The record is a 74-nucleotide sequence from Leptolyngbya iicbica, which matches "Glutamine riboswitch aptamer (glnA leader)" in Rfam. Its family is annotated with glutamine binding in the Gene Ontology. The match comes from Rfam's covariance-model search (54 bits). Pairs were carried over by alignment from the consensus structure, which is taken from published work.
RNA sequence: AUCGUUCAUCCUCUUGUUUCCAUUCAGGAGAUGAGGACGGAAGUAGGGGGCACCGGACUCCGAAGGAACGCGCC
Numbered sequence: 001a002u003c004g005u006u007c008a009u010c011c012u013c014u015u016g017u018u019u020c021c022a023u024u025c026a027g028g029a030g031a032u033g034a035g036g037a038c039g040g041a042a043g044u045a046g047g048g049g050g051c052a053c054c055g056g057a058c059u060c061c062g063a064a065g066g067a068a069c070g071c072g073c074c
Stems, first nucleotide, its partner, number of pairs: 003070005009037005040071001046061003